A member of the RNA family "Mason-Pfizer monkey virus packaging signal" from Sciurus vulgaris, 285 nucleotides long. Rfam 15.1 lists 2,921 matches to the family in 53 species. About the family: This family represents a group of sequences that are related to the Mason-Pfizer monkey virus (MPMV) packaging signal. The packaging signal is located in the 5' UTR and is required for specific RNA encapsidation. The source organism's lineage runs through Eukaryota, Eumetazoa, Euteleostomi, Boreoeutheria and Sciurus. Rfam links the family to the GO term viral genome packaging.
RNA sequence: UGGUGCCAACGGUGUGGCUUUGGAUAUGGGUGAAUUCACGAGGGAAGAGGCGUGUAAGUGUUAGGCUGAAGAGAAAAAAACGUGGAAAGUCAGUUCAAGAAAGUUCACCGCGGGAGCCUGCCGUGCCGUUCUUAAAGGUACAGUAGCGCCUAAGUAUGGGACAAGAAUUAAGUAAGCAUAACGUUUUUGUUAAGAAAUUAAAAGAAGCUUUAAAGACACAGGGAGUAAAGGUUAAGAGUAAUGAUCUUUUUAAGUUUUUUGACCUUAUUAAGGAAACCUGUCCAU
Numbered sequence: 001u002g003g004u005g006c007c008a009a010c011g012g013u014g015u016g017g018c019u020u021u022g023g024a025u026a027u028g029g030g031u032g033a034a035u036u037c038a039c040g041a042g043g044g045a046a047g048a049g050g051c052g053u054g055u056a057a058g059u060g061u062u063a064g065g066c067u068g069a070a071g072a073g074a075a076a077a078a079a080a081c082g083u084g085g086a087a088a089g090u091c092a093g094u095u096c097a098a099g100a101a102a103g104u105u106c107a108c109c110g111c112g113g114g115a116g117c118c119u120g121c122c123g124u125g126c127c128g129u130u131c132u133u134a135a136a137g138g139u140a141c142a143g144u145a146g147c148g149c150c151u152a153a154g155u156a157u158g159g160g161a162c163a164a165g166a167a168u169u170a171a172g173u174a175a176g177c178a179u180a181a182c183g184u185u186u187u188u189g190u191u192a193a194g195a196a197a198u199u200a201a202a203a204g205a206a207g208c209u210u211u212a213a214a215g216a217c218a219c220a221g222g223g224a225g226u227a228a229a230g231g232u233u234a235a236g237a238g239u240a241a242u243g244a245u246c247u248u249u250u251u252a253a254g255u256u257u258u259u260u261g262a263c264c265u266u267a268u269u270a271a272g273g274a275a276a277c278c279u280g281u282c283c284a285u
Stems, first nucleotide, its partner, number of pairs: 006032001012027003037049001039047001090138002094135002106128001109125005144164001146162001149160004169212003172208002219261008229247006270285001272283003